[Rfam]
RNA sequence: UAUAAGUUGUGGGGGUACCAGUGUUGCUGGUUGAGAUUGUAUCCGUUUAGAUACUGACUCUUAGAACCUGAUCUGGCUAAAACCAGCGUAGGGAACAUGCUUGAUACAUAA
Numbered sequence: 001u002a003u004a005a006g007u008u009g010u011g012g013g014g015g016u017a018c019c020a021g022u023g024u025u026g027c028u029g030g031u032u033g034a035g036a037u038u039g040u041a042u043c044c045g046u047u048u049a050g051a052u053a054c055u056g057a058c059u060c061u062u063a064g065a066a067c068c069u070g071a072u073c074u075g076g077c078u079a080a081a082a083c084c085a086g087c088g089u090a091g092g093g094a095a096c097a098u099g100c101u102u103g104a105u106a107c108a109u110a111a
Stems, first nucleotide, its partner, number of pairs: 008097003011061004017031005039054004067092004073086004
Dot-bracket structure: .......(((((((..(((((.....))))).......((((........))))...)))).....((((..((((......))))..))))..)))..............